The record is a 143-nucleotide RNA sequence from Sinocyclocheilus anshuiensis, which matches "U12 minor spliceosomal RNA" in Rfam.

RNA sequence: AUGCCUUAAACUGAUGAGUAAGGAAAAUAAGGACGCGUGUCCUCGCUCAAACUCGCGAGAGGAAUUUUUGAACGGGCACAGGUCGGUCUGCGAGGUGACUCACCUACUUUUGUGAGAUGCCGAGCAGAGCCAGAAUCUGCCCC
Numbered sequence: 001a002u003g004c005c006u007u008a009a010a011c012u013g014a015u016g017a018g019u020a021a022g023g024a025a026a027a028u029a030a031g032g033a034c035g036c037g038u039g040u041c042c043u044c045g046c047u048c049a050a051a052c053u054c055g056c057g058a059g060a061g062g063a064a065u066u067u068u069u070g071a072a073c074g075g076g077c078a079c080a081g082g083u084c085g086g087u088c089u090g091c092g093a094g095g096u097g098a099c100u101c102a103c104c105u106a107c108u109u110u111u112g113u114g115a116g117a118u119g120c121c122g123a124g125c126a127g128a129g130c131c132a133g134a135a136u137c138u139g140c141c142c143c
Base pairs, nucleotide, nucleotide: 004023005022006021007020008019032041033040034039042059043058044057045056046055074142075141076140077139080138081137082136083135084133086131090125091124094121095120096119097118099116100115101114102113103112
The source organism's lineage runs through Eukaryota, Opisthokonta, Vertebrata, Neopterygii and Sinocyclocheilus. The base pairs follow the family's consensus structure.